[Rfam]
RNA: TD-2 RNA
Organism: Treponema vincentii
RNA sequence: GCUGCCAAGGAUGGCAGUGGUUCCAUGCAGCAGCGAUGUUUUGUGCACGCACAAAACUCGCCUUCCACUGUUGUACACGGAUGUACAACAGUGGAAGAUG
Dot-bracket structure: ((((((......))))))...............(((.((((((((....)))))))))))..((((((((((((((......))))))))))))))....
Numbered sequence: 001g002c003u004g005c006c007a008a009g010g011a012u013g014g015c016a017g018u019g020g021u022u023c024c025a026u027g028c029a030g031c032a033g034c035g036a037u038g039u040u041u042u043g044u045g046c047a048c049g050c051a052c053a054a055a056a057c058u059c060g061c062c063u064u065c066c067a068c069u070g071u072u073g074u075a076c077a078c079g080g081a082u083g084u085a086c087a088a089c090a091g092u093g094g095a096a097g098a099u100g
Stems, first nucleotide, its partner, number of pairs: 001018006034060003038057008063096014